[Rfam]
RNA: Bacterial large subunit ribosomal RNA, nucleotides 802 to 1242
Organism: Marinobacter gudaonensis
RNA sequence: CUCCCCGAAAGCUAUUUAGGUAGCGCCUCGGACGAAUACCACAGGGGGUAGAGCACUGUUUCGGCUAGGGGGUCAUCCCGACUUACCAACCCGAUGCAAACUCCGAAUACCUGUGAGUACUAUCCGGGAGACACACGGCGGGUGCUAACGUCCGUCGUGAAGAGGGAAACAACCCAGACCGCCAGCUAAGGUCCCCAAGUACCAGUUAAGUGGGAAACGAUGUGGGAAGGCUCAGACAGCUAGGAGGUUGGCUUAGAAGCAGCCACCCUUUAAAGAAAGCGUAAUAGCUCACUAGUCGAGUCGGCCUGCGCGGAAGAUGUAACGGGGCUCAAACUGGUCACCGAAGCUGCGGCUGCAUACUUUGUAUGCGGGGUAGGGGAGCGUUCUGUAAGCCUGCGAAGGUGUGUUGUAAAGCAUGCUGGAGGUAUCAGAAGUGCGAAU
Numbered sequence: 001c002u003c004c005c006c007g008a009a010a011g012c013u014a015u016u017u018a019g020g021u022a023g024c025g026c027c028u029c030g031g032a033c034g035a036a037u038a039c040c041a042c043a044g045g046g047g048g049u050a051g052a053g054c055a056c057u058g059u060u061u062c063g064g065c066u067a068g069g070g071g072g073u074c075a076u077c078c079c080g081a082c083u084u085a086c087c088a089a090c091c092c093g094a095u096g097c098a099a100a101c102u103c104c105g106a107a108u109a110c111c112u113g114u115g116a117g118u119a120c121u122a123u124c125c126g127g128g129a130g131a132c133a134c135a136c137g138g139c140g141g142g143u144g145c146u147a148a149c150g151u152c153c154g155u156c157g158u159g160a161a162g163a164g165g166g167a168a169a170c171a172a173c174c175c176a177g178a179c180c181g182c183c184a185g186c187u188a189a190g191g192u193c194c195c196c197a198a199g200u201a202c203c204a205g206u207u208a209a210g211u212g213g214g215a216a217a218c219g220a221u222g223u224g225g226g227a228a229g230g231c232u233c234a235g236a237c238a239g240c241u242a243g244g245a246g247g248u249u250g251g252c253u254u255a256g257a258a259g260c261a262g263c264c265a266c267c268c269u270u271u272a273a274a275g276a277a278a279g280c281g282u283a284a285u286a287g288c289u290c291a292c293u294a295g296u297c298g299a300g301u302c303g304g305c306c307u308g309c310g311c312g313g314a315a316g317a318u319g320u321a322a323c324g325g326g327g328c329u330c331a332a333a334c335u336g337g338u339c340a341c342c343g344a345a346g347c348u349g350c351g352g353c354u355g356c357a358u359a360c361u362u363u364g365u366a367u368g369c370g371g372g373g374u375a376g377g378g379g380a381g382c383g384u385u386c387u388g389u390a391a392g393c394c395u396g397c398g399a400a401g402g403u404g405u406g407u408u409g410u411a412a413a414g415c416a417u418g419c420u421g422g423a424g425g426u427a428u429c430a431g432a433a434g435u436g437c438g439a440a441u
Stems, first nucleotide, its partner, number of pairs: 001381006011024005026130001027128006036121001040115006051104001052102002057098003061094004068087002070084005134159010164175003179352004184348003190342003199339001201338006218312002222309005229302003239296005245269003250264003270274001275290001279288002353371008382436001384433005392426003401420008